[Rfam]
RNA sequence: CGUUCCCGCAAGGCCGACGCCUCUGGCGUCGGGUGGAAACACCGCACUGGAGGAACGUCCGGACUGCACAGGGCAGCGUAGCAGCUAACGGCUGUCCACCGAAAACCGGGCAAGUGUUCGAACGGUUGCGCCGGGCACGCAAGUGCACGGCCAAUCGGACGGACGCGGGUCCGGCAUAAGGUGAGGAUCAGAGCAACAGAGACGAGUCGCCGCAACGGGCAACCUUUGCUGCGGGUGAAACGGGCAAUCUCUACGCGCAGCAAUACCAAAUAGGCACAUGUUGGGACGCGCAGUUCGCUGCGCCCCCUACCCGGGGCCCCCGGGGUGUGUGCGGGUAGGUAGCACCGAGCCGUCGGGUGACCGGCGGCCCAGAUAAAUGGCAGUCACAUGGCGGGCAACCGCCAUGCACAGAAUCCGGCUUAUCGGUGGGCUUCACAC
Numbered sequence: 001c002g003u004u005c006c007c008g009c010a011a012g013g014c015c016g017a018c019g020c021c022u023c024u025g026g027c028g029u030c031g032g033g034u035g036g037a038a039a040c041a042c043c044g045c046a047c048u049g050g051a052g053g054a055a056c057g058u059c060c061g062g063a064c065u066g067c068a069c070a071g072g073g074c075a076g077c078g079u080a081g082c083a084g085c086u087a088a089c090g091g092c093u094g095u096c097c098a099c100c101g102a103a104a105a106c107c108g109g110g111c112a113a114g115u116g117u118u119c120g121a122a123c124g125g126u127u128g129c130g131c132c133g134g135g136c137a138c139g140c141a142a143g144u145g146c147a148c149g150g151c152c153a154a155u156c157g158g159a160c161g162g163a164c165g166c167g168g169g170u171c172c173g174g175c176a177u178a179a180g181g182u183g184a185g186g187a188u189c190a191g192a193g194c195a196a197c198a199g200a201g202a203c204g205a206g207u208c209g210c211c212g213c214a215a216c217g218g219g220c221a222a223c224c225u226u227u228g229c230u231g232c233g234g235g236u237g238a239a240a241c242g243g244g245c246a247a248u249c250u251c252u253a254c255g256c257g258c259a260g261c262a263a264u265a266c267c268a269a270a271u272a273g274g275c276a277c278a279u280g281u282u283g284g285g286a287c288g289c290g291c292a293g294u295u296c297g298c299u300g301c302g303c304c305c306c307c308u309a310c311c312c313g314g315g316g317c318c319c320c321c322g323g324g325g326u327g328u329g330u331g332c333g334g335g336u337a338g339g340u341a342g343c344a345c346c347g348a349g350c351c352g353u354c355g356g357g358u359g360a361c362c363g364g365c366g367g368c369c370c371a372g373a374u375a376a377a378u379g380g381c382a383g384u385c386a387c388a389u390g391g392c393g394g395g396c397a398a399c400c401g402c403c404a405u406g407c408a409c410a411g412a413a414u415c416c417g418g419c420u421u422a423u424c425g426g427u428g429g430g431c432u433u434c435a436c437a438c
Base pairs, nucleotide, nucleotide: 002433005430006429007428008427009426011423012385013384014383016381018379020050021049024046025045028042055421057419059418060417061416062415063414064260065259066258067257071319072318073317074316076256077255078254079253080252081095082094083093084092085091096185097183098182099181100180186251187250191249192248193245194244208234210231212229213228214227215226217224218223264341265340266339267338274332275331276330277329278328279327310324311323312322313321314320349368350367351366352365353364354363355362356361
Source information
This 438-nucleotide sequence belongs to the Rfam family "Bacterial RNase P class A". The family's RNA type in Rfam is ribozyme. A search with the family's covariance model found it, with a score of 151 bits.